[Rfam]
RNA sequence: CUGACCGGCGCGUCCGGGUCAAUUGCGGCAUGCAACACCCGAUCUCCCUCGUCGCCCCGCCCGAAACGGCGAUCGACGAGGGGGAGCGCGUGACAGUCAG
Numbered sequence: 001c002u003g004a005c006c007g008g009c010g011c012g013u014c015c016g017g018g019u020c021a022a023u024u025g026c027g028g029c030a031u032g033c034a035a036c037a038c039c040c041g042a043u044c045u046c047c048c049u050c051g052u053c054g055c056c057c058c059g060c061c062c063g064a065a066a067c068g069g070c071g072a073u074c075g076a077c078g079a080g081g082g083g084g085a086g087c088g089c090g091u092g093a094c095a096g097u098c099a100g
Stems, first nucleotide, its partner, number of pairs: 001100005008091006015041004023035005045085005050078005
L4-Archaeoglobi ribosomal protein leades: a 100-nucleotide RNA. On this family, see Eckert and Weinberg, BMC Microbiol 2020: "Discovery of 20 novel ribosomal leader candidates in bacteria and archaea". Pairs were carried over by alignment from the consensus structure, which is taken from published work.